[Rfam]
RNA sequence: UCAAUAUCAAUGAUGAUCCCAUAUGUUAUCCUUGCUCUUUGAUCCCCAUUGAAGAUACUUAUGUGGGAUUUUCUUUUUUGAGAUGAUG
Number, nucleotide and partner (000 for none) at each position: 001u000002c088003a087004a000005u085006a084007u083008c082009a000010a000011u000012g000013a000014u000015g000016a000017u000018c000019c000020c000021a000022u000023a000024u000025g000026u000027u000028a000029u000030c000031c000032u000033u000034g000035c000036u000037c000038u000039u000040u000041g000042a000043u000044c000045c000046c000047c000048a000049u000050u000051g000052a000053a000054g000055a000056u000057a000058c000059u000060u000061a000062u000063g000064u000065g000066g000067g000068a000069u000070u000071u000072u000073c000074u000075u000076u000077u000078u000079u000080g000081a000082g008083a007084u006085g005086a000087u003088g002
The record is an 88-nucleotide sequence from Dendrobium nobile, which matches "Small nucleolar RNA snoR26" in Rfam. Rfam links the family to the GO terms nucleolus and RNA processing. Taxonomically the source falls in Dendrobium (Eukaryota, Embryophyta, Tracheophyta, Euphyllophyta).